[Rfam]
RNA: mir-263 microRNA precursor family
Organism: Drosophila gunungcola
RNA sequence: UGGCUUUGAAUCUUGGCACUGGGAGAAUUCACAGUUGAUUUCAUUAUUCUGUGGUUCUGCGGGUGCCAAAAUUUAAUCGAC
Number, nucleotide and partner (000 for none) at each position: 001u000002g000003g000004c000005u000006u076007u075008g074009a073010a072011u000012c000013u069014u068015g067016g066017c065018a064019c000020u062021g000022g060023g058024a000025g057026a056027a055028u000029u054030c053031a052032c051033a050034g049035u000036u000037g000038a000039u000040u000041u000042c000043a000044u000045u000046a000047u000048u000049c034050u033051g032052u031053g030054g029055u027056u026057c025058u023059g000060c022061g000062g020063g000064u018065g017066c016067c015068a014069a013070a000071a000072u010073u009074u008075a007076a006077u000078c000079g000080a000081c000